[Rfam]
RNA sequence: UAGACAGGUUAUUAUAUUCGACUAUAUUUACGGCAUGAAACAGGGGAUUACACUAUUUUUAAAUGGAAAGUGAAUCAAUUAACAUAAUAAACUCCU
Number, nucleotide and partner (000 for none) at each position: 001u000002a000003g094004a093005c000006a000007g000008g000009u090010u089011a088012u087013u086014a085015u084016a000017u082018u081019c000020g080021a079022c000023u077024a000025u000026a075027u074028u073029u072030a071031c070032g000033g000034c065035a064036u063037g059038a058039a057040a056041c000042a054043g053044g000045g000046g000047a000048u000049u000050a000051c000052a000053c043054u042055a000056u040057u039058u038059u037060u000061a000062a000063a036064u035065g034066g000067a000068a000069a000070g031071u030072g029073a028074a027075u026076c000077a023078a000079u021080u020081a018082a017083c000084a015085u014086a013087a012088u011089a010090a009091a000092c000093u004094c003095c000096u000